[Rfam]
RNA sequence: UACAUUUCACUCCAGACCCUCGCUAAGCUCCUGAGAAACGCCAGGUAAACGUUUGCCUACACACACCCUAAUCGCAACAUCAGGGUUGCGGCACGCCGGAAAAACGACACGGAACGUCAGGAAGGGGUCAAUGGCCGUUACGCUAAUUCAGUAAGCCUGGAAUUUUGUCUGAUCUUGAGGAAAAGGGGAAGCGUUAAAAACAGUUAUCAAUAUAGAAUGUAUAAAUUGUAUGUAAAUCAACAUUUUGUUUGUGUUUUGGAGUAAAUGCGGAUCAAUAAUAACUAACCCC
Numbered sequence: 001u002a003c004a005u006u007u008c009a010c011u012c013c014a015g016a017c018c019c020u021c022g023c024u025a026a027g028c029u030c031c032u033g034a035g036a037a038a039c040g041c042c043a044g045g046u047a048a049a050c051g052u053u054u055g056c057c058u059a060c061a062c063a064c065a066c067c068c069u070a071a072u073c074g075c076a077a078c079a080u081c082a083g084g085g086u087u088g089c090g091g092c093a094c095g096c097c098g099g100a101a102a103a104a105c106g107a108c109a110c111g112g113a114a115c116g117u118c119a120g121g122a123a124g125g126g127g128u129c130a131a132u133g134g135c136c137g138u139u140a141c142g143c144u145a146a147u148u149c150a151g152u153a154a155g156c157c158u159g160g161a162a163u164u165u166u167g168u169c170u171g172a173u174c175u176u177g178a179g180g181a182a183a184a185g186g187g188g189a190a191g192c193g194u195u196a197a198a199a200a201c202a203g204u205u206a207u208c209a210a211u212a213u214a215g216a217a218u219g220u221a222u223a224a225a226u227u228g229u230a231u232g233u234a235a236a237u238c239a240a241c242a243u244u245u246u247g248u249u250u251g252u253g254u255u256u257u258g259g260a261g262u263a264a265a266u267g268c269g270g271a272u273c274a275a276u277a278a279u280a281a282c283u284a285a286c287c288c289c
Stems, first nucleotide, its partner, number of pairs: 015129006022028002029122006040092003043058006074089005096112003140194005147161005168186003173181002232286002248267001250265001252263003
Dot-bracket structure: ..............((((((.((...))((((((.....(((((((((....))))))...............(((((......))))))))...(((...........)))....)))))).))))))..........(((((..(((((.....)))))......(((..((.....))..)))...))))).....................................((..............(.(.(((......))).).).................))...